RNA sequence: GGAUCCACAGGGAGGUAUCCCAAUCCAACCUUAGAAAAAGAAAUCUGCCACAGGAGUCUUGGAGAUUGGAGACUGUCCUAAUGACUUA
Numbered sequence: 001g002g003a004u005c006c007a008c009a010g011g012g013a014g015g016u017a018u019c020c021c022a023a024u025c026c027a028a029c030c031u032u033a034g035a036a037a038a039a040g041a042a043a044u045c046u047g048c049c050a051c052a053g054g055a056g057u058c059u060u061g062g063a064g065a066u067u068g069g070a071g072a073c074u075g076u077c078c079u080a081a082u083g084a085c086u087u088a
Stems, first nucleotide, its partner, number of pairs: 002087002006083002010079004015074001018071001020069006029062002038060004044054004
RNA: mir-9014 microRNA precursor family
Organism: Equus asinus